[Rfam]
The family of this 205-nucleotide RNA from Dictyostelium discoideum is "U2 spliceosomal RNA". The organism belongs to Dictyostelium, within Eukaryota. The base pairs follow the family's consensus structure, which is taken from published work. Rfam's curators put it in the seed alignment. The literature on the family includes a 1997 paper in Nucleic Acids Res by Zwieb, "The uRNA database". Rfam 15.1 lists 71,512 matches to the family in 2,642 species.
RNA sequence: AUUCUUCUUGAAGCGUAAUAGCUUUAAUCAAGUGUAGUAUCUGUUCUAGAACGUUUAAAAUCGUUCUUGCUUUCUAAGUGAAAGCAUUCGAAUUUAAAAUAAUUUUUUAUUCGAGGUUUAGAUGUUAUGAUAUCGGCAUGCCUUUAUUACAUCUAAAAUAGCAUUCGCUCUGUAUUGCACAAUUUCAGAGUUUAUAAAAAGAGUG
Numbered sequence: 001a002u003u004c005u006u007c008u009u010g011a012a013g014c015g016u017a018a019u020a021g022c023u024u025u026a027a028u029c030a031a032g033u034g035u036a037g038u039a040u041c042u043g044u045u046c047u048a049g050a051a052c053g054u055u056u057a058a059a060a061u062c063g064u065u066c067u068u069g070c071u072u073u074c075u076a077a078g079u080g081a082a083a084g085c086a087u088u089c090g091a092a093u094u095u096a097a098a099a100u101a102a103u104u105u106u107u108u109a110u111u112c113g114a115g116g117u118u119u120a121g122a123u124g125u126u127a128u129g130a131u132a133u134c135g136g137c138a139u140g141c142c143u144u145u146a147u148u149a150c151a152u153c154u155a156a157a158a159u160a161g162c163a164u165u166c167g168c169u170c171u172g173u174a175u176u177g178c179a180c181a182a183u184u185u186c187a188g189a190g191u192u193u194a195u196a197a198a199a200a201g202a203g204u205g
Base pairs, nucleotide, nucleotide: 008027009026010025012023013022014021048067049066050065051064052063053062069085070084071083072082073081074080117157118156119155120154121153122152123151124150135142136141163195164194168190169189170188171187172186